[Rfam]
RNA sequence: GCCCUGUGGUUGCUGGAGGCUGCUGAACAGUGCCACACUCCUGGGUAUGGAGGGCCAGUGCAGCCCAGUGACUUACGCAUGGGAGUUGUUUUUCCUCAGCAACUGCUUUAGCCAGGUCCCUAGUGCAUGG
Dot-bracket structure: ((((..((..(.(.(((.(..((........))..)..))).).)..))..))))............(.((((...(((.((.(((((((.......))))))).)).).))..)))).)..........
This 130-nucleotide RNA from Octodon degus belongs to the Rfam family "Small nucleolar RNA SNORA84".
NCBI's taxonomy places the organism under Eukaryota, Vertebrata, Gnathostomata, Glires, Octodon.
On this family, see Marker et al., Curr Biol 2002: "Experimental RNomics: identification of 140 candidates for small non-messenger RNAs in the plant Arabidopsis thaliana".
Rfam 15.1 lists 757 matches to the family in 629 species.